[Rfam]
RNA sequence: CCUUUGGAGUAUUAUAUCAAACGAAAGUAGAUUGUUAUUUAUAACUUUUAAAAUCGGAUACGUUGAAAAAGGAA
Numbered sequence: 001c002c003u004u005u006g007g008a009g010u011a012u013u014a015u016a017u018c019a020a021a022c023g024a025a026a027g028u029a030g031a032u033u034g035u036u037a038u039u040u041a042u043a044a045c046u047u048u049u050a051a052a053a054u055c056g057g058a059u060a061c062g063u064u065g066a067a068a069a070a071g072g073a074a
Base pairs, nucleotide, nucleotide: 001072002071003070004069005068009061010060011059012058013057022056023055024054030049031048035044036043

This 74-nucleotide RNA from Romboutsia maritimum belongs to the Rfam family "RAGATH-18 RNA". NCBI's taxonomy places the organism under Bacteria, Bacillati, Peptostreptococcales, Peptostreptococcaceae, Romboutsia. The family's RNA type in Rfam is small RNA. The match comes from Rfam's covariance-model search (74 bits). Pairs were carried over by alignment from the consensus structure, which is taken from published work.